[Rfam]
RNA sequence: ACUCGUACGGGGCAAAGCGGCAGAGAUGCCGUGACGCAAAGCCUCCGGUCCACGCGCGGCGCCUGCCGGCGCCGCGAUGGAUAGCGGGGCCGCCCUU
Numbered sequence: 001a002c003u004c005g006u007a008c009g010g011g012g013c014a015a016a017g018c019g020g021c022a023g024a025g026a027u028g029c030c031g032u033g034a035c036g037c038a039a040a041g042c043c044u045c046c047g048g049u050c051c052a053c054g055c056g057c058g059g060c061g062c063c064u065g066c067c068g069g070c071g072c073c074g075c076g077a078u079g080g081a082u083a084g085c086g087g088g089g090c091c092g093c094c095c096u097u
Stems, first nucleotide, its partner, number of pairs: 012037002017032006041090003045087003048082003055076009
A member of the RNA family "c-di-GMP-I riboswitch aptamer" from beta proteobacterium AAP99, 97 nucleotides long. It scores 55 bits against the family's covariance model. Taxonomically the source falls in Betaproteobacteria (Bacteria, Pseudomonadati, Pseudomonadota).